Rfam assigns this 127-nucleotide RNA sequence from Ciceribacter sp. L1K22 to the family "Alphaproteobacterial ar14".
It scores 97 bits against the family's covariance model.
Smr14C2 was renamed NfeR1 (Nodule Formation Efficiency RNA) highly expressed in salt stress and during the symbiotic interaction on legume roots.
The pairing is the family consensus, mapped onto this sequence.
RNA sequence: GAGCUUCGGUCAUCGCGCAUCCUCCUCCUCCCAGCGCAUGGCCGAACGGCAGGUGACACUCCUCCUCCCAGUCAUCUGCCACCUCAAAUGACGCCCACCGGACCUCCUCCCCCGGUGGGCGUUAUUG
Numbered sequence: 001g002a003g004c005u006u007c008g009g010u011c012a013u014c015g016c017g018c019a020u021c022c023u024c025c026u027c028c029u030c031c032c033a034g035c036g037c038a039u040g041g042c043c044g045a046a047c048g049g050c051a052g053g054u055g056a057c058a059c060u061c062c063u064c065c066u067c068c069c070a071g072u073c074a075u076c077u078g079c080c081a082c083c084u085c086a087a088a089u090g091a092c093g094c095c096c097a098c099c100g101g102a103c104c105u106c107c108u109c110c111c112c113c114g115g116u117g118g119g120c121g122u123u124a125u126u127g
Stems, first nucleotide, its partner, number of pairs: 007044003011040003015037004048080010091122011